[Rfam]
RNA sequence: UGGACUUAUACUUGAGUGAGGAAAACAAUGACCUGAGGUAACGCCUGGGUCCUCACUAUGAAUGUGAACUAUGUAUGUGAGAGGAAUUUUUGUGCAGGUAGGGGUUGACCCAGGGUGCCCCACUUGCUUCGUGGGAUGCUUGGGAGACAUGAACUGCAAA
Numbered sequence: 001u002g003g004a005c006u007u008a009u010a011c012u013u014g015a016g017u018g019a020g021g022a023a024a025a026c027a028a029u030g031a032c033c034u035g036a037g038g039u040a041a042c043g044c045c046u047g048g049g050u051c052c053u054c055a056c057u058a059u060g061a062a063u064g065u066g067a068a069c070u071a072u073g074u075a076u077g078u079g080a081g082a083g084g085a086a087u088u089u090u091u092g093u094g095c096a097g098g099u100a101g102g103g104g105u106u107g108a109c110c111c112a113g114g115g116u117g118c119c120c121c122a123c124u125u126g127c128u129u130c131g132u133g134g135g136a137u138g139c140u141u142g143g144g145a146g147a148c149a150u151g152a153a154c155u156g157c158a159a160a
Stems, first nucleotide, its partner, number of pairs: 005020004030051006037044001052081005098157002102155002105152003110144002113141005119135005
Description: The family of this 160-nucleotide sequence from Rhinopomastus cyanomelas is "U12 minor spliceosomal RNA". The family is grouped with related families in Rfam's "U2 clan". Lineage of the source: Eukaryota > Metazoa > Archelosauria > Archosauria > Rhinopomastus. It scores 66 bits against the family's covariance model.